[Rfam]
RNA sequence: UUAACUCAAACUUGUAUGGAGUUGGAACGUUCGCCUACGUUUGCCAUUAGAGACGUGGUCACAACUGCGUACAAAUUUGAGUUA
Numbered sequence: 001u002u003a004a005c006u007c008a009a010a011c012u013u014g015u016a017u018g019g020a021g022u023u024g025g026a027a028c029g030u031u032c033g034c035c036u037a038c039g040u041u042u043g044c045c046a047u048u049a050g051a052g053a054c055g056u057g058g059u060c061a062c063a064a065c066u067g068c069g070u071a072c073a074a075a076u077u078u079g080a081g082u083u084a
Base pairs, nucleotide, nucleotide: 008078009077010076012074013073014072015071016070018068020066021065022064023063024062027059028058034052036050039047040046
This 84-nucleotide RNA sequence from Bombyx mori belongs to the Rfam family "mir-2807 microRNA precursor family". For this family Rfam cites "MicroRNAs of Bombyx mori identified by Solexa sequencing" (Liu et al., BMC Genomics, 2010). Rfam 15.1 lists 5,120 matches to the family in 8 species. The family's consensus secondary structure was predicted with RNAalifold.